Notes
A member of the RNA family "Bacterial RNase P class A" from Vallitalea guaymasensis, 354 nucleotides long.

[Rfam]
RNA sequence: UGAGUAAGCCAAAUGGUCGCGCAUACUAAUGCCGAAAGGCUGUAUGUGAGGAAAGUCCGAGCUCCAUAGGGUAGGAUGCCAGAUAACGUCUGGUGGAGGCGACUCCAAGGAUAGUGCAACAGAAAUAAACCGCCAAGUUUUACUUGGUAAGGAUGGAAAGGUAAGGUAAGAGCUUACCGCCCUUUUGGCGACAAAAGGGGCAUAUGUAAACCCCAUCUGGAGCAAAACCGCAUAGAAGAGCAUAUAGUGGUGACCCGUCACGCUCUUGGGUAGGUUGCUAGAGCUUACUGGUGACAGUAAGUCGAGAUAGAUGACCAUUCAUGACAGAACUCGGCUCAUCGGCUUGCUCAUACA
Numbered sequence: 001u002g003a004g005u006a007a008g009c010c011a012a013a014u015g016g017u018c019g020c021g022c023a024u025a026c027u028a029a030u031g032c033c034g035a036a037a038g039g040c041u042g043u044a045u046g047u048g049a050g051g052a053a054a055g056u057c058c059g060a061g062c063u064c065c066a067u068a069g070g071g072u073a074g075g076a077u078g079c080c081a082g083a084u085a086a087c088g089u090c091u092g093g094u095g096g097a098g099g100c101g102a103c104u105c106c107a108a109g110g111a112u113a114g115u116g117c118a119a120c121a122g123a124a125a126u127a128a129a130c131c132g133c134c135a136a137g138u139u140u141u142a143c144u145u146g147g148u149a150a151g152g153a154u155g156g157a158a159a160g161g162u163a164a165g166g167u168a169a170g171a172g173c174u175u176a177c178c179g180c181c182c183u184u185u186u187g188g189c190g191a192c193a194a195a196a197g198g199g200g201c202a203u204a205u206g207u208a209a210a211c212c213c214c215a216u217c218u219g220g221a222g223c224a225a226a227a228c229c230g231c232a233u234a235g236a237a238g239a240g241c242a243u244a245u246a247g248u249g250g251u252g253a254c255c256c257g258u259c260a261c262g263c264u265c266u267u268g269g270g271u272a273g274g275u276u277g278c279u280a281g282a283g284c285u286u287a288c289u290g291g292u293g294a295c296a297g298u299a300a301g302u303c304g305a306g307a308u309a310g311a312u313g314a315c316c317a318u319u320c321a322u323g324a325c326a327g328a329a330c331u332c333g334g335c336u337c338a339u340c341g342g343c344u345u346g347c348u349c350a351u352a353c354a
Stems, first nucleotide, its partner, number of pairs: 001350010011339001012319007020048007054336002057334005062222004069256004074218005079093005094108001095106004109213002114211002116207003130152002132148007160178006179201001180199008226276004236267006247261005283302008

Taxonomically the source falls in Vallitalea (Bacteria, Clostridia, Lachnospirales, Vallitaleaceae). It scores 315 bits against the family's covariance model. The base pairs follow the family's consensus structure, which is taken from published work. Gene Ontology terms of the family: dimeric ribonuclease P complex, tRNA processing and ribonuclease P activity.